[Rfam]
RNA: Bacterial RNase P class A
RNA sequence: CAAGCAGGCCGCCUUAUCGCCACCGAUUUAAUCGAUGGAGGAAAUUCCGGACACCAAAGAGCGGCAUAGUGGGUAACGCCCACCUAUUUUAUUUUGAGCAAUCAAGAUAAAAUAAGGACUAGUGCAACAGAAAGGAUGUACAGGUAAUGCUGUAGUGAAAUCAGGUAAACUCUAUGCGGUGCAAUGCCAUGUAAACCGGUGUUUGCAAGCUGCUCGCUUGCUACCGGAGGGUAGGCAGCUAAAAGUUUUUGGCAACAAAAACCUGAGAUAAAUGAUAAGGGGAAUCCCGGUUUUACCGGGAGGAACAGAAUCCGGAUUAUAGGCCUGCUUUUUUU
Numbered sequence: 001c002a003a004g005c006a007g008g009c010c011g012c013c014u015u016a017u018c019g020c021c022a023c024c025g026a027u028u029u030a031a032u033c034g035a036u037g038g039a040g041g042a043a044a045u046u047c048c049g050g051a052c053a054c055c056a057a058a059g060a061g062c063g064g065c066a067u068a069g070u071g072g073g074u075a076a077c078g079c080c081c082a083c084c085u086a087u088u089u090u091a092u093u094u095u096g097a098g099c100a101a102u103c104a105a106g107a108u109a110a111a112a113u114a115a116g117g118a119c120u121a122g123u124g125c126a127a128c129a130g131a132a133a134g135g136a137u138g139u140a141c142a143g144g145u146a147a148u149g150c151u152g153u154a155g156u157g158a159a160a161u162c163a164g165g166u167a168a169a170c171u172c173u174a175u176g177c178g179g180u181g182c183a184a185u186g187c188c189a190u191g192u193a194a195a196c197c198g199g200u201g202u203u204u205g206c207a208a209g210c211u212g213c214u215c216g217c218u219u220g221c222u223a224c225c226g227g228a229g230g231g232u233a234g235g236c237a238g239c240u241a242a243a244a245g246u247u248u249u250u251g252g253c254a255a256c257a258a259a260a261a262c263c264u265g266a267g268a269u270a271a272a273u274g275a276u277a278a279g280g281g282g283a284a285u286c287c288c289g290g291u292u293u294u295a296c297c298g299g300g301a302g303g304a305a306c307a308g309a310a311u312c313c314g315g316a317u318u319a320u321a322g323g324c325c326u327g328c329u330u331u332u333u334u335u
Stems, first nucleotide, its partner, number of pairs: 002330009011320001012280007020038003024034004043318003047315005052181004059215004064177005069083005084116001085114013117172002122170002124166002185237004196227005206220005245262007
Dot-bracket structure: .(((((((((((((((((.(((.((((...)))).)))....[[[.[[[[[((((...[[[[.((((((((((.....)))))((((((((((((((....))))))))))))).)((...((((.......................................))..)))))))))))))...((((.......(((((.....(((((.]]]])))))..)))))......)))).......(((((((....)))))))...........)))))))..............................]]]]]]]].).))))))))).....